[Rfam]
RNA sequence: AAAAAUCGCAGUAACUGACGACAAAUGUGGAAGCAACCACAGGGGAGCUGCGUCGCUGUUAAGCCGGUCGUCUGGGCAGAGAGA
Numbered sequence: 001a002a003a004a005a006u007c008g009c010a011g012u013a014a015c016u017g018a019c020g021a022c023a024a025a026u027g028u029g030g031a032a033g034c035a036a037c038c039a040c041a042g043g044g045g046a047g048c049u050g051c052g053u054c055g056c057u058g059u060u061a062a063g064c065c066g067g068u069c070g071u072c073u074g075g076g077c078a079g080a081g082a083g084a
Base pairs, nucleotide, nucleotide: 007052008051009050010049011048012047015044016043017072018071019070020069021068027040028039029038030037063077064076065075

Shown here is an 84-nucleotide sequence from Bacillus sp. Y1, a member of the family "ZMP/ZTP riboswitch aptamer (pfl RNA motif)". The match comes from Rfam's covariance-model search (56 bits). NCBI's taxonomy places the organism under Bacteria, Bacillati, Caryophanales, Bacillaceae, Bacillus.